RNA sequence: ACCAAUCUUCAGGGCGGGGUGAAAUUCCCCACCGGUGGUUACAGCCCACGAACCGCAAGGUUGAUUCGGUGAAACUCCGAAGCCGACAGUACAGUCUGGAUGAAAGAAGAUUGCA
Numbered sequence: 001a002c003c004a005a006u007c008u009u010c011a012g013g014g015c016g017g018g019g020u021g022a023a024a025u026u027c028c029c030c031a032c033c034g035g036u037g038g039u040u041a042c043a044g045c046c047c048a049c050g051a052a053c054c055g056c057a058a059g060g061u062u063g064a065u066u067c068g069g070u071g072a073a074a075c076u077c078c079g080a081a082g083c084c085g086a087c088a089g090u091a092c093a094g095u096c097u098g099g100a101u102g103a104a105a106g107a108a109g110a111u112u113g114c115a
Stems, first nucleotide, its partner, number of pairs: 003113008017029003031095002033085002035049004044083002052061003065081005087098003
Background:
This 115-nucleotide RNA from Slackia isoflavoniconvertens belongs to the Rfam family "FMN riboswitch aptamer (RFN element)". The organism belongs to Slackia, within Bacteria. Rfam 15.1 lists 6,230 matches to the family in 5,120 species. The RFN element is a highly conserved domain that is found frequently in the 5'-untranslated regions of prokaryotic mRNAs that encode for flavin mononucleotide (FMN) biosynthesis and transport proteins. This element is a metabolite-dependent riboswitch that directly binds FMN in the absence of proteins. In Bacillus subtilis, the riboswitch most likely controls gene expression by causing premature transcription termination within the 5' untranslated region of the ribDEAHT operon and precluding access to the ribosome-binding site of ypaA mRNA.The FMN riboswitch structure, reported in present an FMN-bound six-stem junction, adopts a butterfly-like scaffold, stapled together by opposingly directed but nearly identically folded peripheral domains. The match comes from Rfam's covariance-model search (122 bits). Pairs were carried over by alignment from the consensus structure, which is taken from published work.